[Rfam]
RNA sequence: AGAAGAGAGAUACACCUCGCCCCCAGGGGACUGCGGGCGGGUUCAGGCCGGAGCAUCCCCAGCUUCGACCUGGUCGUGCCCUCGCGCACACAGCCGGGGCCCGACGGCUCCGGGAUCUCCUCACCGAUCGGA
Numbered sequence: 001a002g003a004a005g006a007g008a009g010a011u012a013c014a015c016c017u018c019g020c021c022c023c024c025a026g027g028g029g030a031c032u033g034c035g036g037g038c039g040g041g042u043u044c045a046g047g048c049c050g051g052a053g054c055a056u057c058c059c060c061a062g063c064u065u066c067g068a069c070c071u072g073g074u075c076g077u078g079c080c081c082u083c084g085c086g087c088a089c090a091c092a093g094c095c096g097g098g099g100c101c102c103g104a105c106g107g108c109u110c111c112g113g114g115a116u117c118u119c120c121u122c123a124c125c126g127a128u129c130g131g132a
Stems, first nucleotide, its partner, number of pairs: 005122003009119002017040006024033003043073005049067006076089004094113008124131002
Shown here is a 132-nucleotide RNA sequence from Streptomyces sp. SID4985, a member of the family "Streptomyces RNA 5676".
Rfam's curators write: Identified by deep sequencing of transcriptome at the end of exponential growth phase.
It scores 129 bits against the family's covariance model.
By type it is a small RNA.
Taxonomically the source falls in Streptomyces (Bacteria, Bacillati, Kitasatosporales, Streptomycetaceae).